A member of the RNA family "mir-10 microRNA precursor family" from Denticeps clupeoides, 72 nucleotides long.
Rfam 15.1 lists 3,853 matches to the family in 853 species.
RNA sequence: UGUCAUAAACCCGUAGAUCCGAUCUUGUGGUAAUUCUAAUGGCACAAGCUCGCUUCUAUGGGUCUCUGUCUC
Numbered sequence: 001u002g003u004c005a006u007a008a009a010c011c012c013g014u015a016g017a018u019c020c021g022a023u024c025u026u027g028u029g030g031u032a033a034u035u036c037u038a039a040u041g042g043c044a045c046a047a048g049c050u051c052g053c054u055u056c057u058a059u060g061g062g063u064c065u066c067u068g069u070c071u072c
Stems, first nucleotide, its partner, number of pairs: 002070001004068002007065001010062003015057003020052003024048006